Description:
Rfam assigns this 600-nucleotide part of an RNA from Thermoplasma acidophilum to the family "Archaeal large subunit ribosomal RNA". Gene Ontology terms of the family: structural constituent of ribosome and ribosome.
RNA sequence: CUCUGCUAAUCUGCCUAGAGGAUGGCUUGGUUCGGGCGCCGAAGAAGGACGUGCCAAGCUGCGAUAAGCCUUGGGGAGGCGCAUGGAGCCUUAGAUCCAAGGAUCUCCGAAUGGGACUUCCUGCCGUAAGGCACUCCGAAAGGAGAGGGAACCCGGGGAAUUGAAACAUCUUAGUACCCGGAGGAAAAGAAAUCAAUUGAGAUACCGUUAGUAAAGGCGAUCGAAAGCGGUAGAAGGCAAACCGAAUAGCCCUUCGAAAGAAGGGAAAGAUGUGGAGUUUGGUCUUCCUCUAAUGCCUCCUGAAGCGAGAUGAAUCUUCUGGAAAGAAGAGCCUUAGAAGGUGAUAGCCCUGUAAUCGAAGCUUCAGAAGCUACAAGGGGAAGUAACCAGAGUACCAUGCGUCGUUUUUCGCGUGGGAAUUUGGGUGGCACUAACAUCCAACCUUAAAUACGUCCCGAGUCCGAUAGCGAACAAAGUACCGUGAGGGAAAGCUGAAAAGAAACCCGGAAGGGUGGUGAAAAGAGCCUGAAACUAGGCAGAGAUAAACUUAUAGGGCAGUUAAGAGGUGAAGUCGUUAACUACGAUGGAUCGCUGUCCUAU
Numbered sequence: 001c002u003c004u005g006c007u008a009a010u011c012u013g014c015c016u017a018g019a020g021g022a023u024g025g026c027u028u029g030g031u032u033c034g035g036g037c038g039c040c041g042a043a044g045a046a047g048g049a050c051g052u053g054c055c056a057a058g059c060u061g062c063g064a065u066a067a068g069c070c071u072u073g074g075g076g077a078g079g080c081g082c083a084u085g086g087a088g089c090c091u092u093a094g095a096u097c098c099a100a101g102g103a104u105c106u107c108c109g110a111a112u113g114g115g116a117c118u119u120c121c122u123g124c125c126g127u128a129a130g131g132c133a134c135u136c137c138g139a140a141a142g143g144a145g146a147g148g149g150a151a152c153c154c155g156g157g158g159a160a161u162u163g164a165a166a167c168a169u170c171u172u173a174g175u176a177c178c179c180g181g182a183g184g185a186a187a188a189g190a191a192a193u194c195a196a197u198u199g200a201g202a203u204a205c206c207g208u209u210a211g212u213a214a215a216g217g218c219g220a221u222c223g224a225a226a227g228c229g230g231u232a233g234a235a236g237g238c239a240a241a242c243c244g245a246a247u248a249g250c251c252c253u254u255c256g257a258a259a260g261a262a263g264g265g266a267a268a269g270a271u272g273u274g275g276a277g278u279u280u281g282g283u284c285u286u287c288c289u290c291u292a293a294u295g296c297c298u299c300c301u302g303a304a305g306c307g308a309g310a311u312g313a314a315u316c317u318u319c320u321g322g323a324a325a326g327a328a329g330a331g332c333c334u335u336a337g338a339a340g341g342u343g344a345u346a347g348c349c350c351u352g353u354a355a356u357c358g359a360a361g362c363u364u365c366a367g368a369a370g371c372u373a374c375a376a377g378g379g380g381a382a383g384u385a386a387c388c389a390g391a392g393u394a395c396c397a398u399g400c401g402u403c404g405u406u407u408u409u410c411g412c413g414u415g416g417g418a419a420u421u422u423g424g425g426u427g428g429c430a431c432u433a434a435c436a437u438c439c440a441a442c443c444u445u446a447a448a449u450a451c452g453u454c455c456c457g458a459g460u461c462c463g464a465u466a467g468c469g470a471a472c473a474a475a476g477u478a479c480c481g482u483g484a485g486g487g488a489a490a491g492c493u494g495a496a497a498a499g500a501a502a503c504c505c506g507g508a509a510g511g512g513u514g515g516u517g518a519a520a521a522g523a524g525c526c527u528g529a530a531a532c533u534a535g536g537c538a539g540a541g542a543u544a545a546a547c548u549u550a551u552a553g554g555g556c557a558g559u560u561a562a563g564a565g566g567u568g569a570a571g572u573c574g575u576u577a578a579c580u581a582c583g584a585u586g587g588a589u590c591g592c593u594g595u596c597c598u599a600u
Base pairs, nucleotide, nucleotide: 010540011539012538013537014536015535016534017533018532024526025492026491029462030461031459032458033457034456035455036454037452038451047108048107049106050063051062052061069102070101071100072099073098074097078090079089080088113122114121115120134145135144136143137142152183153181154180155179156178157177163170164169193200194199204231205230206229207228208227215221234445235444236443237442242275243274244273252263253262254261255260285382286381287380288379295371296370309357310356311355315330316329317328318327319326333337339351340350341349395416396415397414398413399412400411401410423439424438425437426436427435479486480485550600551599552598553597554596555595556594557593558592563590564589571585572584573583574582575581
It is one of the family's seed sequences.